[Rfam]
RNA sequence: GGUGGUUCUCAGGUGAUGUACCCGGAAUCGGGUUCCCUCCUCUCCGGUUCCAGGUGCGUCAUUUGAGAACUGCU
Numbered sequence: 001g002g003u004g005g006u007u008c009u010c011a012g013g014u015g016a017u018g019u020a021c022c023c024g025g026a027a028u029c030g031g032g033u034u035c036c037c038u039c040c041u042c043u044c045c046g047g048u049u050c051c052a053g054g055u056g057c058g059u060c061a062u063u064u065g066a067g068a069a070c071u072g073c074u
Stems, first nucleotide, its partner, number of pairs: 002073002005070013019056004024051009
RNA: mir-9223 microRNA precursor family